[Rfam]
RNA sequence: CUGCAGUGAUGACCUUCUUAGGACACCUUUGGAUUAAAGAUGAAACUAAAUCUAAUAAUCUGAGCAGC
Dot-bracket structure: ((((...........................................................)))).
Small nucleolar RNA SNORD58: a 68-nucleotide sequence from Neolamprologus brichardi. The match comes from Rfam's covariance-model search (77 bits). Lineage of the source: Eukaryota > Opisthokonta > Neopterygii > Acanthomorphata > Neolamprologus. From the family's description: snoRNA U58 is found in introns 1, 3 and 6 of the ribosomal protein RPL17 gene in humans. For this family Rfam cites "Purified box C/D snoRNPs are able to reproduce site-specific 2'-O-methylation of target RNA in vitro" (Galardi et al., Mol Cell Biol, 2002).